[Rfam]
RNA sequence: CCUCUUACAGUUCGGGUUUCAAGACGACAGAACCGUGAUUUUAUGACAGGUUCGUUGUCGACGAAACCUGCACCUGAUGAGG
Numbered sequence: 001c002c003u004c005u006u007a008c009a010g011u012u013c014g015g016g017u018u019u020c021a022a023g024a025c026g027a028c029a030g031a032a033c034c035g036u037g038a039u040u041u042u043a044u045g046a047c048a049g050g051u052u053c054g055u056u057g058u059c060g061a062c063g064a065a066a067c068c069u070g071c072a073c074c075u076g077a078u079g080a081g082g
Stems, first nucleotide, its partner, number of pairs: 001082004006077001013070008030053005
The record is an 82-nucleotide RNA sequence from Cloeon dipterum, which matches "mir-981 microRNA precursor family" in Rfam. A reference for the family is Legeai et al. (2010), "Bioinformatic prediction, deep sequencing of microRNAs and expression analysis during phenotypic plasticity in the pea aphid, Acyrthosiphon pisum", BMC Genomics. Taxonomically the source falls in Cloeon (Eukaryota, Bilateria, Protostomia, Pisciforma). The family's consensus secondary structure was predicted with RNAalifold.